[Rfam]
RNA: Glycine riboswitch aptamer
RNA sequence: GGAUGUGUCUCUGGAGAAUCUCAAAUGAGUGCCGAAGGUGCAAAAGUAGAAGAAUCUAAUUAUUUAUCUACUUAAUCUCUCAGGCAAAAGGACAGAGAAUUAAUC
Numbered sequence: 001g002g003a004u005g006u007g008u009c010u011c012u013g014g015a016g017a018a019u020c021u022c023a024a025a026u027g028a029g030u031g032c033c034g035a036a037g038g039u040g041c042a043a044a045a046g047u048a049g050a051a052g053a054a055u056c057u058a059a060u061u062a063u064u065u066a067u068c069u070a071c072u073u074a075a076u077c078u079c080u081c082a083g084g085c086a087a088a089a090g091g092a093c094a095g096a097g098a099a100u101u102a103a104u105c
Base pairs, nucleotide, nucleotide: 008098009097010096011095012094013093020029021028022027031085032084033083034081035080038079040077044072